Mammalian CPEB3 ribozyme: a 77-nucleotide RNA sequence from Parnassius apollo.
The family's consensus secondary structure is taken from published work.
Rfam 15.1 lists 5,706 matches to the family in 197 species.
A search with the family's covariance model found it, with a score of 51 bits.
Rfam links the family to the GO term RNA nuclease activity.
Lineage of the source: Eukaryota > Arthropoda > Lepidoptera > Glossata > Parnassius.

[Rfam]
RNA sequence: AAUAACCUUUUGGGGGUCAUUGUAGAAGCGUGCUCGUCGCGACCCCUGCCAGCCCUUUUCAGGCCUGCAAAUCUACA
Numbered sequence: 001a002a003u004a005a006c007c008u009u010u011u012g013g014g015g016g017u018c019a020u021u022g023u024a025g026a027a028g029c030g031u032g033c034u035c036g037u038c039g040c041g042a043c044c045c046c047u048g049c050c051a052g053c054c055c056u057u058u059u060c061a062g063g064c065c066u067g068c069a070a071a072u073c074u075a076c077a
Stems, first nucleotide, its partner, number of pairs: 013046006021077006028040003050067003054063003